Group II catalytic intron D1-D4-2: a 118-nucleotide sequence from Nocardiopsis sp. JB363. Group II introns are found in rRNA, tRNA and mRNA of organelles in fungi, plants and protists, and also in mRNA in bacteria. Taxonomically the source falls in Nocardiopsis (Bacteria, Bacillati, Actinomycetota, Nocardiopsidaceae). For this family Rfam cites "Group II introns: structure and catalytic versatility of large natural ribozymes" (Lehmann and Schmidt, Crit Rev Biochem Mol Biol, 2003).
RNA sequence: GAAGGAUUUGGCCCUUCGGAGCCGCCUUUCGGGAGGAGGCUUCAAACCGCCCUCCGCUGCGUUAGCUGAAGACUGUCGUGGUGAGCGGGAGGGAAAAGGCGCCCAUGAGGCGUCAGGU
Number, nucleotide and partner (000 for none) at each position: 001g017002a016003a015004g014005g013006a000007u000008u000009u000010g000011g000012c000013c005014c004015u003016u002017c001018g043019g042020a041021g040022c039023c038024g000025c036026c035027u034028u033029u000030c000031g000032g000033g028034a027035g026036g025037a000038g023039g022040c021041u020042u019043c018044a000045a000046a000047c000048c117049g000050c093051c092052c091053u090054c089055c088056g082057c081058u000059g079060c078061g077062u000063u075064a074065g073066c000067u000068g000069a000070a000071g000072a000073c065074u064075g063076u000077c061078g060079u059080g000081g057082u056083g000084a000085g000086c000087g000088g055089g054090a053091g052092g051093g050094a000095a000096a000097a000098g114099g113100c112101g111102c110103c109104c000105a000106u000107g000108a000109g103110g102111c101112g100113u099114c098115a000116g000117g048118u000
The match comes from Rfam's covariance-model search (102 bits).